[Rfam]
RNA sequence: ACAAUGAUACUUCCGUAAUUCGCGGCCCGGUCAUAAUGAAGGCGGGGAGGUUAGAUUCCUAUGG
Number, nucleotide and partner (000 for none) at each position: 001a000002c000003a000004a000005u000006g000007a000008u000009a000010c000011u000012u061013c025014c024015g023016u022017a000018a000019u000020u000021c000022g016023c015024g014025g013026c047027c046028c045029g000030g043031u042032c041033a000034u000035a000036a000037u000038g000039a000040a000041g032042g031043c030044g000045g028046g027047g026048a060049g059050g058051u000052u000053a000054g000055a000056u000057u000058c050059c049060u048061a012062u000063g000064g000
Annotation: The family of this 64-nucleotide RNA is "pemK RNA".